The record is a 180-nucleotide RNA from Clostridioides difficile, which matches "glmS glucosamine-6-phosphate activated ribozyme aptamer" in Rfam. The match comes from Rfam's covariance-model search (103 bits). About the family: This entry contains a glucosamine-6-phosphate activated ribozyme that is found in the mRNA for GlmS. GlmS is an enzyme that uses fructose-6-phosphate and glutamine to generate glucosamine-6-phosphate. The ribozyme catalyses self cleavage of the glmS mRNA that is thought to regulate GlmS activity. Its family is annotated with catalytic activity and regulation of gene expression in the Gene Ontology. The base pairs follow the family's consensus structure, which is taken from published work.
RNA sequence: ACACCUUUCUAAGCGCCAGAACUUAGUUAUAGACAUAAUUAUUGAGUAAUAUAGGAACUAAGUUGACGAGGUCAGAGUUAAUCGAAUUGUCGGCGGAUGCUCUGCGGUGUGUUUACCAUCGAAAGACUUCUUUAAAUAAUAGGAGCAAUCCUAUGGACAAAGGGAAGCCAAAGUAAACUU
Numbered sequence: 001a002c003a004c005c006u007u008u009c010u011a012a013g014c015g016c017c018a019g020a021a022c023u024u025a026g027u028u029a030u031a032g033a034c035a036u037a038a039u040u041a042u043u044g045a046g047u048a049a050u051a052u053a054g055g056a057a058c059u060a061a062g063u064u065g066a067c068g069a070g071g072u073c074a075g076a077g078u079u080a081a082u083c084g085a086a087u088u089g090u091c092g093g094c095g096g097a098u099g100c101u102c103u104g105c106g107g108u109g110u111g112u113u114u115a116c117c118a119u120c121g122a123a124a125g126a127c128u129u130c131u132u133u134a135a136a137u138a139a140u141a142g143g144a145g146c147a148a149u150c151c152u153a154u155g156g157a158c159a160a161a162g163g164g165a166a167g168c169c170a171a172a173g174u175a176a177a178c179u180u
Stems, first nucleotide, its partner, number of pairs: 020064008073104005082093004105121005125169001127167004139154006